[Rfam]
RNA sequence: UAUAGCCUGGAAUGUGCGACAACUCCUGCUAUUUAGAACCUACAUUUACUUUAAACGGGAUUCCUAUAUGAGUUGUUGGAUGUCAGGCCGCCUCGUAUCAGCGGAAGGCAGAAGGCAAACUGCGGUCGCCCACCUAGCAUUGGCUAGGAGUCUAAAUUGUAGGAACCGGCAUUUUGGGUUACUC
Numbered sequence: 001u002a003u004a005g006c007c008u009g010g011a012a013u014g015u016g017c018g019a020c021a022a023c024u025c026c027u028g029c030u031a032u033u034u035a036g037a038a039c040c041u042a043c044a045u046u047u048a049c050u051u052u053a054a055a056c057g058g059g060a061u062u063c064c065u066a067u068a069u070g071a072g073u074u075g076u077u078g079g080a081u082g083u084c085a086g087g088c089c090g091c092c093u094c095g096u097a098u099c100a101g102c103g104g105a106a107g108g109c110a111g112a113a114g115g116c117a118a119a120c121u122g123c124g125g126u127c128g129c130c131c132a133c134c135u136a137g138c139a140u141u142g143g144c145u146a147g148g149a150g151u152c153u154a155a156a157u158u159g160u161a162g163g164a165a166c167c168g169g170c171a172u173u174u175u176g177g178g179u180u181a182c183u184c
Base pairs, nucleotide, nucleotide: 003181004180005179006178007177008176009175010174011173012172013171014170015169017168018167031157032156033155034154035153036152037151039148040147057131058130059129063125064124068121073118074117075116076115077114083108084107088104089103090102091101
RNA: 6S / SsrS RNA